This 85-nucleotide RNA sequence from Solanum tuberosum belongs to the Rfam family "Small nucleolar RNA U54".
It scores 55 bits against the family's covariance model.
Rfam classes the family as a C/D-box small nucleolar RNA.
The organism belongs to Solanum, within Eukaryota.
The family's consensus secondary structure was predicted with PFOLD.
Rfam's curators write: U54 is a C/D box small nucleolar RNA, which acts as a methylation guide for 18S ribosomal RNA in plants.
Nucleotides: 085
Base pairs, nucleotide, nucleotide: 001085002084003083004082005081
Number, partner (000 for none) and nucleotide at each position: 001085a002084g003083c004082u005081c006000a007000g008000u009000g010000a011000u012000u013000g014000u015000a016000u017000g018000c019000c020000u021000u022000g023000u024000g025000g026000c027000a028000a029000u030000a031000u032000a033000c034000g035000c036000u037000a038000u039000a040000c041000c042000g043000a044000u045000c046000u047000a048000a049000a050000g051000c052000a053000u054000g055000a056000g057000u058000a059000g060000a061000u062000a063000a064000a065000a066000a067000a068000a069000u070000u071000u072000c073000a074000a075000g076000u077000a078000u079000g080000a081005g082004a083003g084002c085001u